About this RNA:
A member of the RNA family "let-7 microRNA precursor family" from Drosophila pseudoobscura, 69 nucleotides long. This family represents the microRNAs (miRNA) let-7 and mir-98. let-7 was identified from a study of developmental timing in C. elegans, and was later shown to be part of a much larger class of non-coding RNAs termed miRNAs. For this family Rfam cites "Cryo-EM Structure of Human Dicer and Its Complexes with a Pre-miRNA Substrate" (Liu et al., Cell, 2018).
[Rfam]
RNA sequence: GCAAAUUGAGGUAGUAGGUUGUAUAGUAGUACUUCAGAUCGUACUAUACAAUGUGCUAGCUUUCUUUGC
Numbered sequence: 001g002c003a004a005a006u007u008g009a010g011g012u013a014g015u016a017g018g019u020u021g022u023a024u025a026g027u028a029g030u031a032c033u034u035c036a037g038a039u040c041g042u043a044c045u046a047u048a049c050a051a052u053g054u055g056c057u058a059g060c061u062u063u064c065u066u067u068g069c
Base pairs, nucleotide, nucleotide: 001069002068003067004066005065008062009061010060012058013057014056015055016054018052019051020050021049022048023047024046025045026044027043033038